[Rfam]
A member of the RNA family "Potassium channel RNA editing signal" from Puma concolor, 116 nucleotides long. About the family: This family represents a group of sequences related to the human potassium channel Kv1.1 hairpin element which directs the efficient modification of an adenosine to inosine by an adenosine deaminase acting on RNA (ADAR). The ADAR modification causes an isoleucine/valine recoding event which lies in the ion-conducting pore of the potassium channel. It is thought that this editing event targets the process of fast inactivation and allows a more rapid recovery from inactivation at negative potentials. Lineage of the source: Eukaryota > Teleostomi > Eutheria > Boreoeutheria > Puma.
RNA sequence: GUAGGCUAUGGGGACAUGAGGCCUGUCACUGUAGGGGGCAAGAUUGUGGGCUCCAUGCAGUGCCAUAUCACAACCUCACUCCCAUCGCCCUGCCUGUGCCGGUCAUUGUCUCCAAC
Numbered sequence: 001g002u003a004g005g006c007u008a009u010g011g012g013g014a015c016a017u018g019a020g021g022c023c024u025g026u027c028a029c030u031g032u033a034g035g036g037g038g039c040a041a042g043a044u045u046g047u048g049g050g051c052u053c054c055a056u057g058c059a060g061u062g063c064c065a066u067a068u069c070a071c072a073a074c075c076u077c078a079c080u081c082c083c084a085u086c087g088c089c090c091u092g093c094c095u096g097u098g099c100c101g102g103u104c105a106u107u108g109u110c111u112c113c114a115a116c
Base pairs, nucleotide, nucleotide: 001116002115004113005112008109009108010107011106013104014103015102018099021097022096037079040076049064050063051062
Dot-bracket structure: ((.((..((((.(((..(..((..............(..(........(((..........)))...........)..)................)).)..))).))))..)).))